[Rfam]
RNA sequence: UCUAGAACUCGAGAUAUGAGCUGAACACUGAACAAUGUUUUGGCUGCAGGAUAGAUUCAGACUUCUUCGUUGUUGCUAUAAUUUGGACUUAAAAAUGCCAUUUUUAAAUCUUGGCCUCCACAUGAAAGUUGUAGGUCUAUGUCUUACCAAAUCUAUG
Number, nucleotide and partner (000 for none) at each position: 001u000002c000003u155004a154005g153006a152007a000008c000009u146010c000011g145012a144013g143014a142015u141016a140017u139018g138019a000020g136021c134022u133023g132024a000025a130026c000027a129028c128029u127030g000031a000032a000033c000034a000035a123036u122037g121038u000039u000040u000041u000042g118043g117044c000045u000046g000047c000048a112049g111050g110051a109052u108053a000054g105055a104056u000057u000058c000059a000060g099061a000062c000063u097064u000065c000066u000067u000068c000069g000070u000071u000072g088073u087074u086075g000076c000077u000078a000079u000080a000081a000082u000083u000084u000085g000086g074087a073088c072089u000090u000091a000092a000093a000094a000095a000096u000097g063098c000099c060100a000101u000102u000103u000104u055105u054106a000107a000108a052109u051110c050111u049112u048113g000114g000115c000116c000117u043118c042119c000120a000121c037122a036123u035124g000125a000126a000127a029128g028129u027130u025131g000132u023133a022134g021135g000136u020137c000138u018139a017140u016141g015142u014143c013144u012145u011146a009147c000148c000149a000150a000151a000152u006153c005154u004155a003156u000157g000
The family of this 157-nucleotide RNA from Populus alba is "MIR2912 microRNA precursor family".
The family's consensus secondary structure was predicted with RNAalifold.